[Rfam]
RNA sequence: ACCAAGCCUAGCCCGACGGGGCGAAAAUCGGAUACCUUCAAUCGCUGGCUUGGUUCCUAUCUUUGAAGG
Numbered sequence: 001a002c003c004a005a006g007c008c009u010a011g012c013c014c015g016a017c018g019g020g021g022c023g024a025a026a027a028u029c030g031g032a033u034a035c036c037u038u039c040a041a042u043c044g045c046u047g048g049c050u051u052g053g054u055u056c057c058u059a060u061c062u063u064u065g066a067a068g069g
Base pairs, nucleotide, nucleotide: 001054002053003052004051005050006049007048008047011022012021013020014019029044030043031042035069036068037067038066039065040064
Rfam assigns this 69-nucleotide sequence to the family "int-alpA RNA".
It is annotated as a small RNA.
The family's consensus secondary structure is taken from published work.
About the family: Acidobacteria (1 example), Planctomycetes (1 example), Proteobacteria.
Rfam's curators put it in the seed alignment.